[Rfam]
RNA sequence: GUAGGCUAUGGGGACAUGGUGCCGGUGACUAUAGGGGGCAAGAUCGUGGGUUCCCUGUGCGCCAUCGCUGGUGUGCUGACCAUCGCCCUCCCCGUGCCUGUCAUCGUGUCCAAC
Numbered sequence: 001g002u003a004g005g006c007u008a009u010g011g012g013g014a015c016a017u018g019g020u021g022c023c024g025g026u027g028a029c030u031a032u033a034g035g036g037g038g039c040a041a042g043a044u045c046g047u048g049g050g051u052u053c054c055c056u057g058u059g060c061g062c063c064a065u066c067g068c069u070g071g072u073g074u075g076c077u078g079a080c081c082a083u084c085g086c087c088c089u090c091c092c093c094g095u096g097c098c099u100g101u102c103a104u105c106g107u108g109u110c111c112a113a114c
Base pairs, nucleotide, nucleotide: 001114002113004111005110007108008107009106010105011104013102014101015100016099018097021095022094037077038076039075040074049063050062051061
Annotation: This 114-nucleotide RNA from Cyprinus carpio belongs to the Rfam family "Potassium channel RNA editing signal". Taxonomically the source falls in Cyprinus carpio (Eukaryota, Bilateria, Vertebrata, Euteleostomi). A reference for the family is Bhalla et al. (2004), "Control of human potassium channel inactivation by editing of a small mRNA hairpin", Nat Struct Mol Biol. The family's RNA type in Rfam is cis-regulatory element.